[Rfam]
RNA: Small nucleolar RNA SNORA29
Organism: Ornithorhynchus anatinus
RNA sequence: CUUCCCAUUUGACUACCACUUUUUUGAAUCACAGAUUGAGUGGUUAUGCUUAUGGGAUAGACAAAAAGCUGCCAUGGUCUGAAGGAGAAGAUGUUUGAUAUCUUUUUCCCUAUAUGAAAUGGCAGAACAAAACCAG
Numbered sequence: 001c002u003u004c005c006c007a008u009u010u011g012a013c014u015a016c017c018a019c020u021u022u023u024u025u026g027a028a029u030c031a032c033a034g035a036u037u038g039a040g041u042g043g044u045u046a047u048g049c050u051u052a053u054g055g056g057a058u059a060g061a062c063a064a065a066a067a068g069c070u071g072c073c074a075u076g077g078u079c080u081g082a083a084g085g086a087g088a089a090g091a092u093g094u095u096u097g098a099u100a101u102c103u104u105u106u107u108c109c110c111u112a113u114a115u116g117a118a119a120u121g122g123c124a125g126a127a128c129a130a131a132a133c134c135a136g
Stems, first nucleotide, its partner, number of pairs: 004056004016043004071123004089111002